[Rfam]
RNA sequence: UCGGCACGGUAAGUGAUCACUUGAAAAAGAGGAAAGUCCGAGCUGCGAUAAGACGAAGUUCCAUCUAACGGAUGGCUAGGGCAACCUAAGGGAAAGUGUAACAGAAAGCAAACAGCCGCUAAACGCGGUAAAGGUGAAACGGCGGGGUAAGAGCCCACCAGCGCGCUUGGCAACUCGCGCGGCUUUAUAAACCCAACUUGCAGCAAGAAGGGACGGUUUUAGUCUUAUAUUUAAACCCUUCGCUAGAGCUAAAUUGUAAAAUUUAGAGUAGAUAAAUGAUCACUCACGACAGAACUCGGCUUAUCGCCGUGCCUUAAUU
Numbered sequence: 001u002c003g004g005c006a007c008g009g010u011a012a013g014u015g016a017u018c019a020c021u022u023g024a025a026a027a028a029g030a031g032g033a034a035a036g037u038c039c040g041a042g043c044u045g046c047g048a049u050a051a052g053a054c055g056a057a058g059u060u061c062c063a064u065c066u067a068a069c070g071g072a073u074g075g076c077u078a079g080g081g082c083a084a085c086c087u088a089a090g091g092g093a094a095a096g097u098g099u100a101a102c103a104g105a106a107a108g109c110a111a112a113c114a115g116c117c118g119c120u121a122a123a124c125g126c127g128g129u130a131a132a133g134g135u136g137a138a139a140c141g142g143c144g145g146g147g148u149a150a151g152a153g154c155c156c157a158c159c160a161g162c163g164c165g166c167u168u169g170g171c172a173a174c175u176c177g178c179g180c181g182g183c184u185u186u187a188u189a190a191a192c193c194c195a196a197c198u199u200g201c202a203g204c205a206a207g208a209a210g211g212g213a214c215g216g217u218u219u220u221a222g223u224c225u226u227a228u229a230u231u232u233a234a235a236c237c238c239u240u241c242g243c244u245a246g247a248g249c250u251a252a253a254u255u256g257u258a259a260a261a262u263u264u265a266g267a268g269u270a271g272a273u274a275a276a277u278g279a280u281c282a283c284u285c286a287c288g289a290c291a292g293a294a295c296u297c298g299g300c301u302u303a304u305c306g307c308c309g310u311g312c313c314u315u316a317a318u319u
Stems, first nucleotide, its partner, number of pairs: 003313008011304001012284007020029003034302003038299005043203004051228001053226001056199005061075005076090001077088004091194002096192002098188003113133001115129005141159002144156003161183001162181005169174001207241004219233001221231003249266007
Shown here is a 319-nucleotide RNA sequence from Campylobacter curvus, a member of the family "Bacterial RNase P class A". It is one of the family's seed sequences. Its family is annotated with dimeric ribonuclease P complex, ribonuclease P activity and tRNA processing in the Gene Ontology. The family's consensus secondary structure is taken from published work. The organism belongs to Campylobacter curvus, within Bacteria.